small nucleolar RNA snR35: a 166-nucleotide sequence from Mucor lusitanicus.

RNA sequence: UCUGUGCGGCGAGCGCCCCUGAAAACUUGAUGUGUUACUCGCUAACUCUUUCUAAUGAGUCGGUUUUGAGUGUCAACCCAGGUUGAGAAUGAGUUCGAAUGUCUUAGUGCCUAUCUGUUAUCUUGUCCCUGACUAGGGUAACAGAGGGCUGGUGAUUCCUACAUCU
Numbered sequence: 001u002c003u004g005u006g007c008g009g010c011g012a013g014c015g016c017c018c019c020u021g022a023a024a025a026c027u028u029g030a031u032g033u034g035u036u037a038c039u040c041g042c043u044a045a046c047u048c049u050u051u052c053u054a055a056u057g058a059g060u061c062g063g064u065u066u067u068g069a070g071u072g073u074c075a076a077c078c079c080a081g082g083u084u085g086a087g088a089a090u091g092a093g094u095u096c097g098a099a100u101g102u103c104u105u106a107g108u109g110c111c112u113a114u115c116u117g118u119u120a121u122c123u124u125g126u127c128c129c130u131g132a133c134u135a136g137g138g139u140a141a142c143a144g145a146g147g148g149c150u151g152g153u154g155a156u157u158c159c160u161a162c163a164u165c166u
Stems, first nucleotide, its partner, number of pairs: 024084006037071005045060004097158004112147001114145007122137002
The literature on the family includes a 2005 paper in J Biol Chem by Li et al., "Identification and functional analysis of 20 Box H/ACA small nucleolar RNAs (snoRNAs) from Schizosaccharomyces pombe". Clan: SNORA13 clan. A search with the family's covariance model found it, with a score of 41 bits. Its family is annotated with RNA processing and nucleolus in the Gene Ontology. Rfam classes the family as an H/ACA-box small nucleolar RNA.